[Rfam]
RNA sequence: GGCAUUGCGAUGACGGAGAAAGUAUGUUAGGGGUGUUUCCUACAGGGAGGGUGCUGCCAUAGAUUGAGAGCGGCCCGGAGACAUAUAGCAGAAGUUCGCUCCUGAGUAUCUGGGCUGAAAAUUCAUGUAGGCCGGACGUUUUCCGCGUUAAGGAAUCGGAGUAGAUAAGUAGGGUGGUACCGCGGAAGUAUGACUUCCGCCCCUUUA
Numbered sequence: 001g002g003c004a005u006u007g008c009g010a011u012g013a014c015g016g017a018g019a020a021a022g023u024a025u026g027u028u029a030g031g032g033g034u035g036u037u038u039c040c041u042a043c044a045g046g047g048a049g050g051g052u053g054c055u056g057c058c059a060u061a062g063a064u065u066g067a068g069a070g071c072g073g074c075c076c077g078g079a080g081a082c083a084u085a086u087a088g089c090a091g092a093a094g095u096u097c098g099c100u101c102c103u104g105a106g107u108a109u110c111u112g113g114g115c116u117g118a119a120a121a122u123u124c125a126u127g128u129a130g131g132c133c134g135g136a137c138g139u140u141u142u143c144c145g146c147g148u149u150a151a152g153g154a155a156u157c158g159g160a161g162u163a164g165a166u167a168a169g170u171a172g173g174g175u176g177g178u179a180c181c182g183c184g185g186a187a188g189u190a191u192g193a194c195u196u197c198c199g200c201c202c203c204u205u206u207a
Stems, first nucleotide, its partner, number of pairs: 007107002015102004025090005038079003049075002052072003110135002113133004137147003171204004182200007
About this RNA:
T-box leader: a 207-nucleotide sequence from Propionispora sp. 2/2-37. The family's RNA type in Rfam is cis-regulatory leader. The source organism's lineage runs through Bacteria, Negativicutes, Selenomonadales, Sporomusaceae and Propionispora. Uncharged tRNA acts as the effector for transcription antitermination of genes in the T-box leader family. The match comes from Rfam's covariance-model search (94 bits). A reference for the family is Gerdeman et al. (2003), "Solution structure of the Bacillus subtilis T-box antiterminator RNA: seven nucleotide bulge characterized by stacking and flexibility", J Mol Biol. Gene Ontology term of the family: tRNA binding.